This 171-nucleotide sequence from Pusillimonas sp. T2 belongs to the Rfam family "Group II catalytic intron D1-D4-3".
It scores 132 bits against the family's covariance model.
The organism belongs to Pusillimonas, within Bacteria.
About the family: Group II introns are found in rRNA, tRNA and mRNA of organelles in fungi, plants and protists, and also in mRNA in bacteria.
The base pairs follow the family's consensus structure.
[Rfam]
RNA sequence: UCUGGGGUGACCCAGAAUCUGAAGGAAGUCGGAGGCAAAUCUCCGCCCCUAGGAACACGAACUUCAUCAGGCUACAUACACUUGGGCGAGACUGCACAACAAGUCAAAGUCCUUACUGCCAAAGGGUGUAUGAAGUAAAUGAAGAGGGGACAUGGAGAGGAAGAGUGUGUG
Numbered sequence: 001u002c003u004g005g006g007g008u009g010a011c012c013c014a015g016a017a018u019c020u021g022a023a024g025g026a027a028g029u030c031g032g033a034g035g036c037a038a039a040u041c042u043c044c045g046c047c048c049c050u051a052g053g054a055a056c057a058c059g060a061a062c063u064u065c066a067u068c069a070g071g072c073u074a075c076a077u078a079c080a081c082u083u084g085g086g087c088g089a090g091a092c093u094g095c096a097c098a099a100c101a102a103g104u105c106a107a108a109g110u111c112c113u114u115a116c117u118g119c120c121a122a123a124g125g126g127u128g129u130a131u132g133a134a135g136u137a138a139a140u141g142a143a144g145a146g147g148g149g150a151c152a153u154g155g156a157g158a159g160g161a162a163g164a165g166u167g168u169g170u171g
Base pairs, nucleotide, nucleotide: 001016002015003014004013005012006011030169031168036163040158041157042156043155044154045153046149047148048147049146050145062144063143064142065141066140071136072135073134075132076131077130078129079128080127081126084112085111086110087109090105091104092103093102